RNA sequence: GGGCAAUGACGACCAACUGUGAUAGGUCUCGUUCGUCGUAAUGGCAUGUUACAGUGCCUUGCCGACCAUCCUGUUAUAUCACCACCCAUAAACUGAGCCC
Numbered sequence: 001g002g003g004c005a006a007u008g009a010c011g012a013c014c015a016a017c018u019g020u021g022a023u024a025g026g027u028c029u030c031g032u033u034c035g036u037c038g039u040a041a042u043g044g045c046a047u048g049u050u051a052c053a054g055u056g057c058c059u060u061g062c063c064g065a066c067c068a069u070c071c072u073g074u075u076a077u078a079u080c081a082c083c084a085c086c087c088a089u090a091a092a093c094u095g096a097g098c099c100c
Stems, first nucleotide, its partner, number of pairs: 001100004046060001048055001

Rfam assigns this 100-nucleotide sequence from Salvia splendens to the family "Small nucleolar RNA Z43". Pairs were carried over by alignment from the consensus structure, which was predicted with PFOLD. Rfam links the family to the GO terms nucleolus and RNA processing. It is annotated as a C/D-box small nucleolar RNA. Rfam 15.1 lists 859 matches to the family in 240 species.